[Rfam]
This 88-nucleotide sequence from Sphaerotilus mobilis belongs to the Rfam family "Burkholderia RNA 7 (anti-hemB)". It is annotated as a small RNA. Rfam's curators write: This RNA motif was identified by computational search in b-proteobacteria Burkholderia. Co-purified with Hfq, expression confirmed by Northern blot. The literature on the family includes a 2013 paper in Genomics by Ramos et al., "Experimental identification of small non-coding regulatory RNAs in the opportunistic human pathogen Burkholderia cenocepacia J2315". Its family is annotated with protein binding and bacterial biofilm matrix in the Gene Ontology.
RNA sequence: UCCCUGCUUUUCCUCCCUGAGCAGGUGCCUUACCGUGUUGACAGCGUUAAGGCUUUGCAGCCCCAGCAUCGAGCUGGGGCUCUUUUUU
Numbered sequence: 001u002c003c004c005u006g007c008u009u010u011u012c013c014u015c016c017c018u019g020a021g022c023a024g025g026u027g028c029c030u031u032a033c034c035g036u037g038u039u040g041a042c043a044g045c046g047u048u049a050a051g052g053c054u055u056u057g058c059a060g061c062c063c064c065a066g067c068a069u070c071g072a073g074c075u076g077g078g079g080c081u082c083u084u085u086u087u088u
Stems, first nucleotide, its partner, number of pairs: 003025006027053006060080008

Pairs were carried over by alignment from the consensus structure, which is taken from published work.